[Rfam]
RNA sequence: GGUUCCCAUUGGUGCAAAUCCAAUCACCUCAAUUUUAUUCCCCAUUGAUAGCAAAUGGUAUUCAUUAAGCAGGGGAAAUCUUAU
Numbered sequence: 001g002g003u004u005c006c007c008a009u010u011g012g013u014g015c016a017a018a019u020c021c022a023a024u025c026a027c028c029u030c031a032a033u034u035u036u037a038u039u040c041c042c043c044a045u046u047g048a049u050a051g052c053a054a055a056u057g058g059u060a061u062u063c064a065u066u067a068a069g070c071a072g073g074g075g076a077a078a079u080c081u082u083a084u
Base pairs, nucleotide, nucleotide: 009023010022011021012020040074041073042072044065045064047062048061049060050059052058
Annotation
Rfam assigns this 84-nucleotide RNA from Rosa chinensis to the family "Plastid-rps12 3UTR RNA". Plastid rpl20 is a non-coding RNA (ncRNA) recognised in plastids. A reference for the family is Richter et al. (2023), "Retrograde signaling in plants: A critical review focusing on the GUN pathway and beyond", Plant Commun. It is annotated as a cis-regulatory element. It scores 78 bits against the family's covariance model.